[Rfam]
A member of the RNA family "Small nucleolar RNA Z188" from Zizania palustris, 100 nucleotides long. The match comes from Rfam's covariance-model search (73 bits).
RNA sequence: GCGUGCCUGUGAUGCGAGCUAGCAAAUGGUGAAUUCGAUGAAUGUGCUGGGUGCGCAGACAUUGUGAUAUGCCUUCUUACGCAGUUCAUCUGAGGCACGC
Numbered sequence: 001g002c003g004u005g006c007c008u009g010u011g012a013u014g015c016g017a018g019c020u021a022g023c024a025a026a027u028g029g030u031g032a033a034u035u036c037g038a039u040g041a042a043u044g045u046g047c048u049g050g051g052u053g054c055g056c057a058g059a060c061a062u063u064g065u066g067a068u069a070u071g072c073c074u075u076c077u078u079a080c081g082c083a084g085u086u087c088a089u090c091u092g093a094g095g096c097a098c099g100c
Stems, first nucleotide, its partner, number of pairs: 002099006